[Rfam]
RNA: Selenocysteine insertion sequence 1
Organism: Cyprinus carpio
RNA sequence: GUGUGCACAUGAAAAUCACAGACGAAAUGGUCCCUUGUCCUGUCUGUGGUUGGAUGAGAAACCACAC
Numbered sequence: 001g002u003g004u005g006c007a008c009a010u011g012a013a014a015a016u017c018a019c020a021g022a023c024g025a026a027a028u029g030g031u032c033c034c035u036u037g038u039c040c041u042g043u044c045u046g047u048g049g050u051u052g053g054a055u056g057a058g059a060a061a062c063c064a065c066a067c
Stems, first nucleotide, its partner, number of pairs: 001067005014051010029039003